[Rfam]
The record is a 52-nucleotide RNA sequence from Sulfitobacter sp. THAF37, which matches "serC leader" in Rfam. Lineage of the source: Bacteria > Pseudomonadota > Rhodobacterales > Roseobacteraceae > Sulfitobacter. The base pairs follow the family's consensus structure. This family is a putative regulatory RNA structure that is found upstream of the serC-serA operon in some alpha-proteobacteria.
RNA sequence: UCUUGGGACACCCUUCCCCAACGAAGGGCGCAUAUCUGAGAGGGUAGCAUCA
Number, nucleotide and partner (000 for none) at each position: 001u000002c000003u000004u000005g000006g000007g000008a000009c000010a000011c028012c027013c026014u025015u024016c023017c000018c000019c000020a000021a000022c000023g016024a015025a014026g013027g012028g011029c000030g000031c000032a000033u046034a045035u044036c043037u042038g000039a000040g000041a000042g037043g036044g035045u034046a033047g000048c000049a000050u000051c000052a000